[Rfam]
RNA sequence: AGCUGUGCGGGUUCCUGGCGUGAUGAUUUGUGACUUAAAGAUAAAAAUCACAUUGCCAGGGAUUACCACACAACC
Numbered sequence: 001a002g003c004u005g006u007g008c009g010g011g012u013u014c015c016u017g018g019c020g021u022g023a024u025g026a027u028u029u030g031u032g033a034c035u036u037a038a039a040g041a042u043a044a045a046a047a048u049c050a051c052a053u054u055g056c057c058a059g060g061g062a063u064u065a066c067c068a069c070a071c072a073a074c075c
Stems, first nucleotide, its partner, number of pairs: 002074001004072003009067002011063010021052002024050006
The record is a 75-nucleotide RNA sequence from Clupea harengus, which matches "mir-23 microRNA precursor family" in Rfam. For this family Rfam cites "Identification of tissue-specific microRNAs from mouse" (Lagos-Quintana et al., Curr Biol, 2002). A search with the family's covariance model found it, with a score of 69 bits.